The family of this 201-nucleotide RNA from Pseudoflavonifractor capillosus is "Group II catalytic intron D1-D4-5".
Pairs were carried over by alignment from the consensus structure.
Rfam describes the family as follows. Group II introns are found in rRNA, tRNA and mRNA of organelles in fungi, plants and protists, and also in mRNA in bacteria.
[Rfam]
RNA sequence: GAGAACUGACAAUCCGAUGGGUGGAAUGAAGGGGCAACGUCCGGAAACGCCCACACUGAUACUCCGAUUGGCUUUGAAGUGUGCAACUACUUCAUGGUCAAAAGCUCGGUGAAGUCGGCAGAGAGUGGCCGUAAGCGGAGCAAUCCGCACGAAACCUGCCCAGAGGUGGGCGGCGUCACCUAUAUGCCGGGUGUCAGAUAC
Dot-bracket structure: .................((((((........(((.....))).....))))))((((......((((((((((.(((((..........))))).))))))....))))......(((((....((((((((....((......))..)))....(((((((....))))))).))))).....)))))))))........